[Rfam]
RNA: Fluoride riboswitch aptamer (crcB RNA motif)
RNA sequence: CCGACGCCAGGAGAUGGCAUACCUCCCGCCACCACGGCAAACCGCCUUCGGGCUGAUGAUGCCUGCACCACC
Numbered sequence: 001c002c003g004a005c006g007c008c009a010g011g012a013g014a015u016g017g018c019a020u021a022c023c024u025c026c027c028g029c030c031a032c033c034a035c036g037g038c039a040a041a042c043c044g045c046c047u048u049c050g051g052g053c054u055g056a057u058g059a060u061g062c063c064u065g066c067a068c069c070a071c072c
Stems, first nucleotide, its partner, number of pairs: 010026004016063005044053003